[Rfam]
RNA sequence: CCAGAACUAGUUGCUUGUCAUUUUUUAAUUGUUUCUUAGAAAAUUUUAACACACUAAGAAUCAAUUAAAAAUGACAAGCGACUAGUUUUGG
Numbered sequence: 001c002c003a004g005a006a007c008u009a010g011u012u013g014c015u016u017g018u019c020a021u022u023u024u025u026u027a028a029u030u031g032u033u034u035c036u037u038a039g040a041a042a043a044u045u046u047u048a049a050c051a052c053a054c055u056a057a058g059a060a061u062c063a064a065u066u067a068a069a070a071a072u073g074a075c076a077a078g079c080g081a082c083u084a085g086u087u088u089u090g091g
Stems, first nucleotide, its partner, number of pairs: 002090022025068007033060007
MIR6288 microRNA precursor family: a 91-nucleotide sequence from Prunus persica.